c-di-AMP riboswitch aptamer (ydaO/yuaA leader): a 143-nucleotide sequence from Geodermatophilus marinus.
RNA sequence: CCGGCCACGCCGCCGGAACCGGGGACCGGGGACCCACCGCAGUCCUGGGGUGAAGCACGCCUCGGCCCUCACCGGCCGCGGCGGCCGGGCGCCUUCCCGCCCGAACCCGUCAGCUAACCCGGUAGGCGGCCGUGGAAGAGAGG
Numbered sequence: 001c002c003g004g005c006c007a008c009g010c011c012g013c014c015g016g017a018a019c020c021g022g023g024g025a026c027c028g029g030g031g032a033c034c035c036a037c038c039g040c041a042g043u044c045c046u047g048g049g050g051u052g053a054a055g056c057a058c059g060c061c062u063c064g065g066c067c068c069u070c071a072c073c074g075g076c077c078g079c080g081g082c083g084g085c086c087g088g089g090c091g092c093c094u095u096c097c098c099g100c101c102c103g104a105a106c107c108c109g110u111c112a113g114c115u116a117a118c119c120c121g122g123u124a125g126g127c128g129g130c131c132g133u134g135g136a137a138g139a140g141a142g143g
Base pairs, nucleotide, nucleotide: 001126002125006024008022025123026122027121028120029119030118035047036046048108049107050106056084058083059082060081087102088101089100090099